[Rfam]
RNA sequence: GAUUGCUAAGAUUAUGGUUUUAGCAACAAGGCUUGAAUUAUUCAAGAGAGUCUAAUCCCUUCAUUUUGCGAAAAAUGUAAACACAUAGAUAAAG
Numbered sequence: 001g002a003u004u005g006c007u008a009a010g011a012u013u014a015u016g017g018u019u020u021u022a023g024c025a026a027c028a029a030g031g032c033u034u035g036a037a038u039u040a041u042u043c044a045a046g047a048g049a050g051u052c053u054a055a056u057c058c059c060u061u062c063a064u065u066u067u068g069c070g071a072a073a074a075a076u077g078u079a080a081a082c083a084c085a086u087a088g089a090u091a092a093a094g
Base pairs, nucleotide, nucleotide: 003026004025005024006023007022008021009020010019011018012017062077063076064075065074066073067072